Record summary: Shown here is a 46-nucleotide RNA from Leiothrix lutea, a member of the family "Histone 3' UTR stem-loop". The base pairs follow the family's consensus structure, which is taken from published work. The family's RNA type in Rfam is cis-regulatory element. Taxonomically the source falls in Leiothrix (Eukaryota, Sauropsida, Dinosauria, Coelurosauria). On this family, see Zhang et al., Proc Natl Acad Sci U S A 2014: "Molecular mechanisms for the regulation of histone mRNA stem-loop-binding protein by phosphorylation". It scores 42 bits against the family's covariance model.

[Rfam]
RNA sequence: CAAACGGCUCUUUUAAGAGCCACCCACCUUUUCAGUAAAAGAGCUU
Numbered sequence: 001c002a003a004a005c006g007g008c009u010c011u012u013u014u015a016a017g018a019g020c021c022a023c024c025c026a027c028c029u030u031u032u033c034a035g036u037a038a039a040a041g042a043g044c045u046u
Base pairs, nucleotide, nucleotide: 006021007020008019009018010017011016